RNA sequence: AAUAGAGGGUGCACAGGCAUGGGAGGUCAGGUGAGCUCAGCUCCCUGCCUCACCUGAGCUCCCGUGCCUGUGCACCCUCUAUU
Numbered sequence: 001a002a003u004a005g006a007g008g009g010u011g012c013a014c015a016g017g018c019a020u021g022g023g024a025g026g027u028c029a030g031g032u033g034a035g036c037u038c039a040g041c042u043c044c045c046u047g048c049c050u051c052a053c054c055u056g057a058g059c060u061c062c063c064g065u066g067c068c069u070g071u072g073c074a075c076c077c078u079c080u081a082u083u
Base pairs, nucleotide, nucleotide: 001083002082003081004080005079006078007077008076009075010074011073012072013071014070015069016068017067018066019065021063022062023061024060025059027057028056029055030054031053032052033051034050035049038047039046040045
RNA: mir-3622 microRNA precursor family
Organism: Homo sapiens